This 74-nucleotide RNA sequence from Drosophila erecta belongs to the Rfam family "mir-310 microRNA precursor family".
Pairs were carried over by alignment from the consensus structure, which was predicted with RNAalifold.
The organism belongs to Sophophora, within Eukaryota.
Its family is annotated with miRNA-mediated post-transcriptional gene silencing, cellular response to nitric oxide and response to nicotine in the Gene Ontology.
Clan: mir-92 microRNA precursor clan.
RNA sequence: AUAUUUGCAGGACGGGUCGUGUGUUAAUGUAUAAAUCUAUUAGCUAUAUUGCACACUUCCCGCUCUUUAAAUGU
Numbered sequence: 001a002u003a004u005u006u007g008c009a010g011g012a013c014g015g016g017u018c019g020u021g022u023g024u025u026a027a028u029g030u031a032u033a034a035a036u037c038u039a040u041u042a043g044c045u046a047u048a049u050u051g052c053a054c055a056c057u058u059c060c061c062g063c064u065c066u067u068u069a070a071a072u073g074u
Stems, first nucleotide, its partner, number of pairs: 001074007010065002013062002016059001020055002023052001025051007